[Rfam]
RNA sequence: GUGAUACUCAAAUGUGGGAGCACUCUUCUGGAAUCCAGGUGGAAAGUGCUUCAACAUUUGGGUGUCAU
Numbered sequence: 001g002u003g004a005u006a007c008u009c010a011a012a013u014g015u016g017g018g019a020g021c022a023c024u025c026u027u028c029u030g031g032a033a034u035c036c037a038g039g040u041g042g043a044a045a046g047u048g049c050u051u052c053a054a055c056a057u058u059u060g061g062g063u064g065u066c067a068u
Stems, first nucleotide, its partner, number of pairs: 004065009014055002017052008026043003
Rfam assigns this 68-nucleotide RNA from Propithecus coquereli to the family "mir-290 microRNA precursor family". For this family Rfam cites "Embryonic stem cell-specific MicroRNAs" (Houbaviy et al., Dev Cell, 2003). Its family is annotated with miRNA-mediated post-transcriptional gene silencing and RISC complex in the Gene Ontology. Lineage of the source: Eukaryota > Gnathostomata > Sarcopterygii > Theria > Propithecus. It scores 55 bits against the family's covariance model.